[Rfam]
RNA sequence: UACCGAGGUUUUUCUCGGCAGUUAACUGCCGCCGGUUUCAUUUUUCCUCGGUAGUUAACUGUCGAGGCGUCCU
Number, nucleotide and partner (000 for none) at each position: 001u000002a000003c000004c000005g000006a000007g000008g000009u000010u000011u000012u069013u067014c000015u065016c064017g063018g062019c061020a060021g059022u058023u057024a056025a055026c054027u053028g052029c051030c050031g049032c000033c000034g000035g000036u000037u000038u000039c000040a000041u000042u000043u000044u000045u000046c000047c000048u000049c031050g030051g029052u028053a027054g026055u025056u024057a023058a022059c021060u020061g019062u018063c017064g016065a015066g000067g013068c000069g012070u000071c000072c000073u000
The record is a 73-nucleotide RNA sequence from Medicago truncatula, which matches "MIR2629 microRNA precursor family" in Rfam. The source organism's lineage runs through Eukaryota, Euphyllophyta, eudicotyledons, Gunneridae and Medicago. It scores 61 bits against the family's covariance model.